Bacillaceae-1 RNA: a 67-nucleotide RNA from Psychrobacillus soli.

RNA sequence: CAGAGAGGAACAAAGGCUAAGAGCACCACAUCCUGUGGCAACGCCUUCGUGACUAACAUCCUGUUAG
Numbered sequence: 001c002a003g004a005g006a007g008g009a010a011c012a013a014a015g016g017c018u019a020a021g022a023g024c025a026c027c028a029c030a031u032c033c034u035g036u037g038g039c040a041a042c043g044c045c046u047u048c049g050u051g052a053c054u055a056a057c058a059u060c061c062u063g064u065u066a067g
Stems, first nucleotide, its partner, number of pairs: 011049001013047005026038004053067005
It is annotated as a small RNA.